[Rfam]
About this RNA: Shown here is an 88-nucleotide RNA from Branchiostoma belcheri, a member of the family "mir-2060 microRNA precursor family". A search with the family's covariance model found it, with a score of 61 bits. Rfam links the family to the GO terms RISC complex and miRNA-mediated post-transcriptional gene silencing.
RNA sequence: UUUCUUCUGUGUGAGUGGCUUUCAGCACCAAGGACAGGUUUGCCUGUGUGUGGAUGGCUUUCAGUACCAAGGACAGGUGUGUUUUUCU
Numbered sequence: 001u002u003u004c005u006u007c008u009g010u011g012u013g014a015g016u017g018g019c020u021u022u023c024a025g026c027a028c029c030a031a032g033g034a035c036a037g038g039u040u041u042g043c044c045u046g047u048g049u050g051u052g053g054a055u056g057g058c059u060u061u062c063a064g065u066a067c068c069a070a071g072g073a074c075a076g077g078u079g080u081g082u083u084u085u086u087c088u
Base pairs, nucleotide, nucleotide: 004079006077007076008075009074010073016069017068018067021064022063024061025060028057029056030055032049034047035046036045037044038043
Dot-bracket structure: ...(.(((((.....(((..((.((..(((.(.(((((....))))).).....)))..)).))..)))...))))).).........
The family's consensus secondary structure was predicted with RNAalifold.